A member of the RNA family "MIR398 microRNA precursor family" from Sorghum bicolor, 129 nucleotides long. Rfam 15.1 lists 627 matches to the family in 211 species. Its family is annotated with miRNA-mediated post-transcriptional gene silencing and RISC complex in the Gene Ontology. NCBI's taxonomy places the organism under Eukaryota, Streptophytina, Petrosaviidae, Poaceae, Sorghum.
RNA sequence: ACAGUUCCGGCGGGGGCGGACUGGGAACACAUGGGAAUGAGAGAUGAGAUUGCUCGGUCGUGCUGGCCCUGGGCUCGUAGUUGAUCUGCUUGUAUGCAUGUGUUCUCAGGUCGCCCCCGCGGGGCCUUC
Numbered sequence: 001a002c003a004g005u006u007c008c009g010g011c012g013g014g015g016g017c018g019g020a021c022u023g024g025g026a027a028c029a030c031a032u033g034g035g036a037a038u039g040a041g042a043g044a045u046g047a048g049a050u051u052g053c054u055c056g057g058u059c060g061u062g063c064u065g066g067c068c069c070u071g072g073g074c075u076c077g078u079a080g081u082u083g084a085u086c087u088g089c090u091u092g093u094a095u096g097c098a099u100g101u102g103u104u105c106u107c108a109g110g111u112c113g114c115c116c117c118c119g120c121g122g123g124g125c126c127u128u129c
Base pairs, nucleotide, nucleotide: 007123008122011119012118013117014116016114017113018112019111023107024106025105026104027103028102029101030100031099032098